Notes
This 63-nucleotide RNA sequence from Homo sapiens belongs to the Rfam family "mir-3926 microRNA precursor family". Pairs were carried over by alignment from the consensus structure, which was predicted with RNAalifold. It is one of the family's seed sequences. The family has 2 seed sequences and 30 matches in Rfam 15.1.
RNA sequence: GGAGCUGGCCAAAAAGCAGGCAGAGACUUUAAAAGCGUCUCUGCCUGCUUUUUGGCCAGCUCC
Numbered sequence: 001g002g003a004g005c006u007g008g009c010c011a012a013a014a015a016g017c018a019g020g021c022a023g024a025g026a027c028u029u030u031a032a033a034a035g036c037g038u039c040u041c042u043g044c045c046u047g048c049u050u051u052u053u054g055g056c057c058a059g060c061u062c063c
Stems, first nucleotide, its partner, number of pairs: 001063027